About this RNA
The record is a 118-nucleotide RNA from Piliocolobus tephrosceles, which matches "Small nucleolar RNA SNORA72" in Rfam. It scores 88 bits against the family's covariance model. Rfam's curators write: U72 is a member of the H/ACA class of snoRNAs. The snoRNA gene is located in intron 4 of the ribosomal L30 protein gene in human, mouse and chicken. The family has 29 seed sequences and 1,541 matches in Rfam 15.1. Lineage of the source: Eukaryota > Metazoa > Deuterostomia > Simiiformes > Piliocolobus. On this family, see Ganot et al., Genes Dev 1997: "The family of box ACA small nucleolar RNAs is defined by an evolutionarily conserved secondary structure and ubiquitous sequence elements essential for RNA accumulation".
RNA sequence: CUGAGAAUAUCUUGCUGUUCUGAUUUUGUAAUAGGACAGGCUCUAAAGAUUGGCCACGUAUGUGUACCCAGACCUAAUUCUUUCCCUAGGUCUGGUUUUAUAAACUCUGGUAAUAAAC
Numbered sequence: 001c002u003g004a005g006a007a008u009a010u011c012u013u014g015c016u017g018u019u020c021u022g023a024u025u026u027u028g029u030a031a032u033a034g035g036a037c038a039g040g041c042u043c044u045a046a047a048g049a050u051u052g053g054c055c056a057c058g059u060a061u062g063u064g065u066a067c068c069c070a071g072a073c074c075u076a077a078u079u080c081u082u083u084c085c086c087u088a089g090g091u092c093u094g095g096u097u098u099u100a101u102a103a104a105c106u107c108u109g110g111u112a113a114u115a116a117a118c
Stems, first nucleotide, its partner, number of pairs: 003043003015039007053111004058107001068095009
Dot-bracket structure: ..(((.........(((((((...........))))))).))).........((((.(.........(((((((((..........)))))))))...........))))).......